Description: This 118-nucleotide RNA from Yersinia pestis belongs to the Rfam family "Fumarate/nitrate reductase regulator sRNA". Pairs were carried over by alignment from the consensus structure, which is taken from published work. The source organism's lineage runs through Bacteria, Gammaproteobacteria, Enterobacterales, Yersinia and Yersinia pestis. Rfam classes the family as a small RNA.

RNA sequence: GCCGGUGAUUGCACGGUCAAGCGAUGGCGGUUGCGCUCCCUAUUUGUUAUACUUUUAUUUUGAAUUACUGCAUAGCAUUUAAUUGUUACGGUGCCGAUGUUGAAAAACAUCGGCAUUU
Numbered sequence: 001g002c003c004g005g006u007g008a009u010u011g012c013a014c015g016g017u018c019a020a021g022c023g024a025u026g027g028c029g030g031u032u033g034c035g036c037u038c039c040c041u042a043u044u045u046g047u048u049a050u051a052c053u054u055u056u057a058u059u060u061u062g063a064a065u066u067a068c069u070g071c072a073u074a075g076c077a078u079u080u081a082a083u084u085g086u087u088a089c090g091g092u093g094c095c096g097a098u099g100u101u102g103a104a105a106a107a108c109a110u111c112g113g114c115a116u117u118u
Stems, first nucleotide, its partner, number of pairs: 001047002004044001007038002010035004014030001016028003063084005069077003093114008